[Rfam]
RNA sequence: ACAUAAUAUUAGCAUACUUAUUGAAAAAUAAGGACGCAAAACUAUAGGGUCUAAAUAAUUUUUUAUAUGACAGCCAGUUGCCUGA
Numbered sequence: 001a002c003a004u005a006a007u008a009u010u011a012g013c014a015u016a017c018u019u020a021u022u023g024a025a026a027a028a029u030a031a032g033g034a035c036g037c038a039a040a041a042c043u044a045u046a047g048g049g050u051c052u053a054a055a056u057a058a059u060u061u062u063u064u065a066u067a068u069g070a071c072a073g074c075c076a077g078u079u080g081c082c083u084g085a
Stems, first nucleotide, its partner, number of pairs: 012037002017032006040079004047075002049071003056065003
Rfam assigns this 85-nucleotide sequence from Acetobacterium paludosum to the family "c-di-GMP-I riboswitch aptamer". NCBI's taxonomy places the organism under Bacteria, Bacillati, Clostridia, Eubacteriaceae, Acetobacterium.